[Rfam]
RNA sequence: CGGACUCUUCCUGAGGGCCUCCCUCAACCCUGUUGUGCUGGUUCAGAGGGUUGGGCGGAGGCUUUCCCGAAGGCUCU
Numbered sequence: 001c002g003g004a005c006u007c008u009u010c011c012u013g014a015g016g017g018c019c020u021c022c023c024u025c026a027a028c029c030c031u032g033u034u035g036u037g038c039u040g041g042u043u044c045a046g047a048g049g050g051u052u053g054g055g056c057g058g059a060g061g062c063u064u065u066c067c068c069g070a071a072g073g074c075u076c077u
Stems, first nucleotide, its partner, number of pairs: 006073005013066007021058002023055009033046003

This 77-nucleotide RNA from Pteropus vampyrus belongs to the Rfam family "mir-296 microRNA precursor family". The match comes from Rfam's covariance-model search (77 bits). Rfam links the family to the GO terms miRNA-mediated post-transcriptional gene silencing and RISC complex. Taxonomically the source falls in Pteropus (Eukaryota, Euteleostomi, Amniota, Chiroptera).